[Rfam]
RNA: Guanidine-I riboswitch aptamer
RNA sequence: CAGCAAGCUGUCUAGGGUUCCGUUCGAACGACUUGCAGCACUCGGCUAUGAUCGGGUGGGCACGGGUUUGAGUUCUGGUCCGAGAGAUGGCGUAUAGCAAGCGGCAGCCUUGAUUGGCGCCUAGGCUGUAUAACACGGAAGGAUAAAAGCCUGGGAGAU
Numbered sequence: 001c002a003g004c005a006a007g008c009u010g011u012c013u014a015g016g017g018u019u020c021c022g023u024u025c026g027a028a029c030g031a032c033u034u035g036c037a038g039c040a041c042u043c044g045g046c047u048a049u050g051a052u053c054g055g056g057u058g059g060g061c062a063c064g065g066g067u068u069u070g071a072g073u074u075c076u077g078g079u080c081c082g083a084g085a086g087a088u089g090g091c092g093u094a095u096a097g098c099a100a101g102c103g104g105c106a107g108c109c110u111u112g113a114u115u116g117g118c119g120c121c122u123a124g125g126c127u128g129u130a131u132a133a134c135a136c137g138g139a140a141g142g143a144u145a146a147a148a149g150c151c152u153g154g155g156a157g158a159u
Base pairs, nucleotide, nucleotide: 007091008090009089010088011087012086015081016080020078021077022075023072024071025070026069027068028067097127098125134154136157140152141151142150